[Rfam]
RNA sequence: UGAUGUCAGGGUCUAAAGGUCUAAACCCACGUGAGCUCGCUCAUAGGUGGGUGAAAGACCUUGAGACCCGCUCCGAUAUGAGCAUAAAAGUGGGAUGAUAAUCCCACGAUAUGCGAAUAUUGGGGAGAAUUGUGGGAGUGCGUAGCACGAAACAAUUCGUAGACAUUA
Dot-bracket structure: (((((((..((((..(((((((...((((((((((....)))))..)))))....)))))))..))))...((((((((..((((....(((((((....)))))))...))))..))))))))..(((((((....((((...))))...)))))))...)))))))

Clostridiales-1 RNA: a 168-nucleotide RNA sequence from Firmicutes bacterium CAG:194. The family's consensus secondary structure is taken from published work.